[Rfam]
RNA sequence: AAUUAAGACGGGUAAAACCUAGUUAUGUGCCUUCAAUGCUCCCCGCAAUCGCGGGAUAUGAGUUGGAGGAAAAAGACAUAGCGGGCGCCGUCUUUUU
Number, nucleotide and partner (000 for none) at each position: 001a097002a096003u000004u000005a093006a000007g000008a000009c090010g089011g000012g000013u000014a000015a000016a000017a000018c000019c000020u000021a000022g000023u081024u080025a079026u078027g077028u076029g000030c075031c068032u067033u066034c065035a064036a063037u062038g000039c000040u000041c000042c055043c054044c053045g052046c051047a000048a000049u000050c000051g046052c045053g044054g043055g042056a000057u000058a000059u000060g000061a000062g037063u036064u035065g034066g033067a032068g031069g000070a000071a000072a000073a000074a000075g030076a028077c027078a026079u025080a024081g023082c000083g000084g000085g000086c000087g000088c000089c010090g009091u000092c000093u005094u000095u000096u002097u001
The family of this 97-nucleotide RNA from Legionella beliardensis is "DUF3800-V RNA". NCBI's taxonomy places the organism under Bacteria, Pseudomonadota, Gammaproteobacteria, Legionellales, Legionella. Rfam classes the family as a small RNA. A search with the family's covariance model found it, with a score of 49 bits.